Rfam assigns this 75-nucleotide sequence from Embleya scabrispora to the family "ASpks TB sRNA". A search with the family's covariance model found it, with a score of 84 bits. By type it is an antisense RNA.
RNA sequence: CUUCAACGACCCCAGCCACAACGGCCGAUCCUCGUCCCGGCCCCGGCCGUAGGUGGCCAACAACGCCUGGGCCUC
Numbered sequence: 001c002u003u004c005a006a007c008g009a010c011c012c013c014a015g016c017c018a019c020a021a022c023g024g025c026c027g028a029u030c031c032u033c034g035u036c037c038c039g040g041c042c043c044c045g046g047c048c049g050u051a052g053g054u055g056g057c058c059a060a061c062a063a064c065g066c067c068u069g070g071g072c073c074u075c
Base pairs, nucleotide, nucleotide: 015025016024017023031071032070033069038065039064045058047056048055049054